RNA sequence: GCUCUUUCAAAAUGCGUGCGUCUUUCCUAUAUUGGGGAUGCCGGCCGCGAGGUCGGCUAUGGCGAUAAACGGCUAUCGGAAUAAACCCAUCGGACCCGGGGGCGGUACCCGGCGCCUCCACCCAAACCCAGGCACCGCUUGGGUUUCGGCGGGGGCGAAAUAGGAUCGACGAGGGCGUAAAGGAUAGACUUUCGCUCGGCAUGGUUCCGCCGUUAUCGGGCCGAUUCAAUAGUUGCCAACGACAACUAUGCUCCGGUUGCGGUGGCUGCGUAAGCAGUCCCCAAGGCCGAUUCGAAGCCCUAGCGGUUAGCACCGUUAGGCGGGGUCCGGAGGCACCUGGCAACAGAAGCCUCCACC
Number, nucleotide and partner (000 for none) at each position: 001g000002c000003u000004c000005u000006u000007u000008c000009a000010a000011a000012a000013u000014g000015c000016g000017u000018g000019c000020g000021u000022c000023u000024u000025u000026c000027c000028u000029a000030u000031a000032u000033u000034g000035g000036g000037g000038a000039u000040g057041c056042c055043g054044g053045c052046c051047g000048c000049g000050a000051g046052g045053u044054c043055g042056g041057c040058u000059a000060u000061g196062g195063c194064g193065a192066u000067a000068a000069a000070c000071g189072g000073c187074u186075a185076u184077c183078g000079g000080a000081a000082u000083a000084a000085a000086c175087c174088c173089a000090u172091c171092g170093g000094a000095c000096c112097c111098g110099g109100g108101g000102g000103c000104g000105g000106u000107a000108c100109c099110c098111g097112g096113c157114g156115c155116c154117u153118c152119c151120a000121c000122c000123c000124a000125a000126a000127c000128c000129c000130a000131g000132g000133c000134a000135c000136c000137g000138c000139u000140u000141g000142g000143g000144u000145u000146u000147c000148g000149g000150c000151g119152g118153g117154g116155g115156c114157g113158a000159a000160a000161u000162a000163g000164g000165a000166u000167c000168g000169a000170c092171g091172a090173g088174g087175g086176c000177g000178u000179a000180a000181a000182g000183g077184a076185u075186a074187g073188a000189c071190u000191u000192u065193c064194g063195c062196u061197c212198g211199g210200c209201a000202u223203g222204g221205u000206u220207c219208c218209g200210c199211c198212g197213u000214u000215a000216u000217c000218g208219g207220g206221c204222c203223g202224a000225u000226u000227c000228a000229a000230u000231a000232g000233u000234u000235g000236c000237c000238a000239a000240c000241g000242a000243c000244a000245a000246c000247u000248a000249u000250g000251c000252u000253c000254c000255g000256g000257u000258u000259g000260c000261g000262g000263u000264g000265g000266c000267u000268g000269c000270g000271u000272a000273a000274g000275c000276a000277g000278u000279c000280c000281c000282c000283a000284a000285g000286g000287c000288c000289g000290a000291u000292u000293c000294g000295a000296a000297g000298c000299c000300c000301u000302a000303g000304c000305g000306g000307u000308u000309a000310g000311c000312a000313c000314c000315g000316u000317u000318a000319g000320g000321c000322g000323g338324g337325g336326u335327c000328c000329g354330g353331a352332g351333g350334c349335a326336c325337c324338u323339g000340g000341c000342a000343a000344c000345a000346g000347a000348a000349g334350c333351c332352u331353c330354c329355a000356c000357c000
Rfam assigns this 357-nucleotide sequence from Microvirga thermotolerans to the family "Alphaproteobacteria transfer-messenger RNA". NCBI's taxonomy places the organism under Bacteria, Pseudomonadati, Pseudomonadota, Methylobacteriaceae, Microvirga. Its Rfam clan is "tRNA clan". Bacterial tmRNA, also known as 10Sa RNA or SsrA, is named for its dual tRNA and mRNA-like properties. Its role is to liberate the mRNA from a stalled ribosome. To accomplish this part of the tmRNA is used as a reading frame that ends in a translation stop signal.